[Rfam]
Bacterial large signal recognition particle RNA: a 267-nucleotide RNA sequence from Peptococcaceae bacterium SCADC1_2_3. Pairs were carried over by alignment from the consensus structure, which is taken from published work. Taxonomically the source falls in Peptococcaceae (Bacteria, Bacillota, Clostridia, Eubacteriales). Clan: SRP clan.
RNA sequence: CCGUGCUAGACGGGGAGGUAGCGGUGCCCUGAACCUGCAAUCCGCUAGAGCAGGGUUGAAUUCCUGACCCGAGGGUUUAGCUUGUAGGGUCUGACCUCUGAUAAGGAGUGACGAUGGUUGGGUCUUGCGCGACGAAGACUUCUGAACCGUGUCAGGUCCUGACGGAAGCAGCACUAAGGAAAUCUCUUCGGGUGCCGCAAGGGUGCCUGACUUGAGCUACCUGCAGAGGUAACGCCUGGAAGUUAUUAUUCGACGGUAGGUGCACGG
Dot-bracket structure: ((((((..(((((((.(.(...).).))))...(((((...........)))))))).....(((.(((...((((..(((((.((((...((..(((((....(((((......(((((((((((((((..((((((.((((.....((((....(((....)))....))))...)))).)..))))).)...))))))...))))))))...))).))..))))).))...)))).)))))...))))...)))))).))))))
Numbered sequence: 001c002c003g004u005g006c007u008a009g010a011c012g013g014g015g016a017g018g019u020a021g022c023g024g025u026g027c028c029c030u031g032a033a034c035c036u037g038c039a040a041u042c043c044g045c046u047a048g049a050g051c052a053g054g055g056u057u058g059a060a061u062u063c064c065u066g067a068c069c070c071g072a073g074g075g076u077u078u079a080g081c082u083u084g085u086a087g088g089g090u091c092u093g094a095c096c097u098c099u100g101a102u103a104a105g106g107a108g109u110g111a112c113g114a115u116g117g118u119u120g121g122g123u124c125u126u127g128c129g130c131g132a133c134g135a136a137g138a139c140u141u142c143u144g145a146a147c148c149g150u151g152u153c154a155g156g157u158c159c160u161g162a163c164g165g166a167a168g169c170a171g172c173a174c175u176a177a178g179g180a181a182a183u184c185u186c187u188u189c190g191g192g193u194g195c196c197g198c199a200a201g202g203g204u205g206c207c208u209g210a211c212u213u214g215a216g217c218u219a220c221c222u223g224c225a226g227a228g229g230u231a232a233c234g235c236c237u238g239g240a241a242g243u244u245a246u247u248a249u250u251c252g253a254c255g256g257u258a259g260g261u262g263c264a265c266g267g
Stems, first nucleotide, its partner, number of pairs: 001267006009057003012030004017025001019023001034054005063260003067257003073251004079244005085238004092231002096228005105221002107218003116212008124201006130192001133190005138183001140181004149174004157166003